[Rfam]
This 47-nucleotide sequence from Methylophaga muralis belongs to the Rfam family "Guanidine-II riboswitch aptamer (mini-ykkC)". The organism belongs to Methylophaga, within Bacteria. A search with the family's covariance model found it, with a score of 34 bits. From the family's description: Simpler in structure and has fewer highly conserved nucleotide positions than the ykkC-yxkD leader. Despite this each of its two stem-loop structures directly bind free guanidine. Therefore, mini-ykkC RNA motif represents a distinct class of guanidine-sensing RNAs. Its crystal structure was also determined.

RNA sequence: GUUUUAAGACGACUUGAAACACGCCGGAAUUAAGUGGGACGACCCAC
Numbered sequence: 001g002u003u004u005u006a007a008g009a010c011g012a013c014u015u016g017a018a019a020c021a022c023g024c025c026g027g028a029a030u031u032a033a034g035u036g037g038g039a040c041g042a043c044c045c046a047c
Base pairs, nucleotide, nucleotide: 001020002019003018004017005016006015007014008013034047035046036045037044038043
Dot-bracket structure: ((((((((....)))))))).............(((((....)))))